Description:
Shown here is a 35-nucleotide RNA, a member of the family "S4-Flavobacteria ribosomal protein leader". On this family, see Eckert and Weinberg, BMC Microbiol 2020: "Discovery of 20 novel ribosomal leader candidates in bacteria and archaea". Rfam classes the family as a cis-regulatory leader.
RNA sequence: UAUCAUCGGAGGAAGUGAGACCUUAAUCCAUGAUA
Numbered sequence: 001u002a003u004c005a006u007c008g009g010a011g012g013a014a015g016u017g018a019g020a021c022c023u024u025a026a027u028c029c030a031u032g033a034u035a
Stems, first nucleotide, its partner, number of pairs: 001035006008029001009024004